[Rfam]
RNA: c-di-AMP riboswitch aptamer (ydaO/yuaA leader)
Organism: Actinomadura viridilutea
RNA sequence: AAGACGGCAACGCCUAAUCCGCGUCCUUUGCGGAGCCGGGGAACCAACGCGCGCGGUUCGCGGGCCGAAUAGUGCCCGUUCCGUCGCAGGGGUGAAUCGGCGCUUUCUCUGUUCGAGCGCGCCGUAGGGCGACUUCCACGCCCGAAUCCGUCAGCUAACCCGGUAGGCGGUAUGGGGGAUAGGA
Numbered sequence: 001a002a003g004a005c006g007g008c009a010a011c012g013c014c015u016a017a018u019c020c021g022c023g024u025c026c027u028u029u030g031c032g033g034a035g036c037c038g039g040g041g042a043a044c045c046a047a048c049g050c051g052c053g054c055g056g057u058u059c060g061c062g063g064g065c066c067g068a069a070u071a072g073u074g075c076c077c078g079u080u081c082c083g084u085c086g087c088a089g090g091g092g093u094g095a096a097u098c099g100g101c102g103c104u105u106u107c108u109c110u111g112u113u114c115g116a117g118c119g120c121g122c123c124g125u126a127g128g129g130c131g132a133c134u135u136c137c138a139c140g141c142c143c144g145a146a147u148c149c150g151u152c153a154g155c156u157a158a159c160c161c162g163g164u165a166g167g168c169g170g171u172a173u174g175g176g177g178g179a180u181a182g183g184a
Stems, first nucleotide, its partner, number of pairs: 011169004018034006035164006045089001090149003098124006127143004